U4 spliceosomal RNA: a 150-nucleotide sequence from Prolemur simus.
The base pairs follow the family's consensus structure, which is taken from published work.
It is annotated as a spliceosomal small nuclear RNA.
The organism belongs to Prolemur, within Eukaryota.

RNA sequence: AGCUUUGCACAGUGACAGUGUUGUAGCCAAUGAGGUUUAUCUGAGGUGUGAUUAUUGCUAAUUGAAAACUUUUCCCAGUACCCCACCAUGACAAUAUAGUCACCAUUGCAAUAUAGUCACCAUUGGCAAUUAUGAUGGUCCCUAUGGGGA
Number, nucleotide and partner (000 for none) at each position: 001a000002g000003c000004u000005u000006u000007g000008c000009a000010c000011a000012g000013u000014g000015a000016c000017a000018g000019u000020g052021u051022u050023g049024u048025a000026g047027c046028c045029a000030a000031u000032g000033a000034g042035g041036u000037u000038u000039a000040u000041c035042u034043g000044a000045g028046g027047u026048g024049u023050g022051a021052u020053u000054a000055u000056u000057g000058c000059u000060a000061a000062u000063u000064g000065a000066a000067a000068a000069c000070u000071u000072u000073u000074c000075c000076c000077a000078g000079u000080a000081c000082c000083c000084c000085a000086c126087c125088a123089u122090g121091a117092c116093a000094a114095u113096a112097u111098a000099g000100u000101c000102a000103c000104c000105a000106u000107u000108g000109c000110a000111a097112u096113a095114u094115a000116g092117u091118c000119a000120c000121c090122a089123u088124u000125g087126g086127c000128a000129a000130u000131u000132a000133u000134g000135a000136u000137g000138g000139u150140c149141c148142c147143u000144a000145u000146g000147g142148g141149g140150a139